This 319-nucleotide sequence from Cyclospora cayetanensis belongs to the Rfam family "Nuclear RNase P". Rfam classes the family as a ribozyme. Ribonuclease P (RNase P) is a ubiquitous endoribonuclease, found in archaea, bacteria and eukarya as well as chloroplasts and mitochondria. Its best characterised activity is the generation of mature 5'-ends of tRNAs by cleaving the 5'-leader elements of precursor-tRNAs.
RNA sequence: GCAGCCGUACUAGGCGCUGCCACGAAAGGGUUUUCGUGGCAAAGCCGCAUGCAGAGGGGAGGGUCUGAGAUGCCGUCGAGCCGCUAGCGCGGCAACGCCGCAAGGCGUUGGUCCUUCACCAGAAAGUCGCCGCUGGUCUCUCGCGAACGCGAGAGACGGCCGCUUGAAAGGGGGGACUGGCAAGGUAGCAGCACUUGUUCCCUCCUUUGCUUGCCAAAGGGGGGAGGCAGGGGGUUGCACGUGAGUUCAAUACCCGGGACGCUUUUGUCUCCUCAAGGGAGAAAAAAUGCGACCUUUCGAUUCAGACUACUCCCGCUGC
Numbered sequence: 001g002c003a004g005c006c007g008u009a010c011u012a013g014g015c016g017c018u019g020c021c022a023c024g025a026a027a028g029g030g031u032u033u034u035c036g037u038g039g040c041a042a043a044g045c046c047g048c049a050u051g052c053a054g055a056g057g058g059g060a061g062g063g064u065c066u067g068a069g070a071u072g073c074c075g076u077c078g079a080g081c082c083g084c085u086a087g088c089g090c091g092g093c094a095a096c097g098c099c100g101c102a103a104g105g106c107g108u109u110g111g112u113c114c115u116u117c118a119c120c121a122g123a124a125a126g127u128c129g130c131c132g133c134u135g136g137u138c139u140c141u142c143g144c145g146a147a148c149g150c151g152a153g154a155g156a157c158g159g160c161c162g163c164u165u166g167a168a169a170g171g172g173g174g175g176a177c178u179g180g181c182a183a184g185g186u187a188g189c190a191g192c193a194c195u196u197g198u199u200c201c202c203u204c205c206u207u208u209g210c211u212u213g214c215c216a217a218a219g220g221g222g223g224g225a226g227g228c229a230g231g232g233g234g235u236u237g238c239a240c241g242u243g244a245g246u247u248c249a250a251u252a253c254c255c256g257g258g259a260c261g262c263u264u265u266u267g268u269c270u271c272c273u274c275a276a277g278g279g280a281g282a283a284a285a286a287a288u289g290c291g292a293c294c295u296u297u298c299g300a301u302u303c304a305g306a307c308u309a310c311u312c313c314c315g316c317u318g319c
Base pairs, nucleotide, nucleotide: 001314005258006257011252015056017054018053019052029046030045031044032043033042034041065305066304067303068302069301071182072181073180074179080093081092082091083090084089094109095108096107097106098105099104110178111177112176113175114174115173116172128162129161260289261288263286264285265284
NCBI's taxonomy places the organism under Eukaryota, Sar, Conoidasida, Eimeriorina, Cyclospora. The base pairs follow the family's consensus structure, which is taken from published work. A search with the family's covariance model found it, with a score of 64 bits.